Description
A member of the RNA family "MIR807 microRNA precursor family" from Oryza sativa, 180 nucleotides long. The family's consensus secondary structure was predicted with WAR. Gene Ontology terms of the family: RISC complex and miRNA-mediated post-transcriptional gene silencing.
[Rfam]
Nucleotides: 180
Stems, first nucleotide, its partner, number of pairs: 001180005007174001009172007017164003025160008034151004039146005045140003049136004055130002058127002061124002067118002073112011090101001
Number, partner (000 for none) and nucleotide at each position: 001180a002179a003178c004177c005176a006000a007174a008000c009172u010171a011170u012169u013168a014167a015166u016000g017164a018163a019162u020000g021000g022000a023000u024000c025160g026159a027158u028157u029156c030155a031154u032153c033000u034151g035150u036149g037148a038000g039146a040145u041144g042143a043142c044000c045140u046139g047138g048000c049136u050135g051134u052133u053000c054000c055130a056129c057000c058127u059126a060000g061124g062123a063000u064000g065000a066000g067118g068117a069000c070000g071000u072000g073112g074111c075110a076109u077108c078107c079106u080105a081104u082103u083102a084000a085000u086000u087000u088000c089000g090101u091000g092000c093000g094000a095000u096000g097000g098000c099000u100000g101090g102083u103082a104081a105080u106079a107078g108077g109076a110075u111074g112073u113000c114000a115000c116000a117068u118067c119000c120000u121000c122000g123062u124061u125000c126059u127058a128000a129056g130055u131000g132000a133052a134051a135050c136049a137000a138047c139046c140045a141000c142043g143042u144041u145040a146039u147000a148037u149036c150035a151034c152000g153032g154031g155030u156029g157028a158027a159026u160025c161000c162019a163018u164017u165000c166015a167014u168013u169012g170011a171010u172009a173000g174007u175000a176005u177004g178003g179002u180001u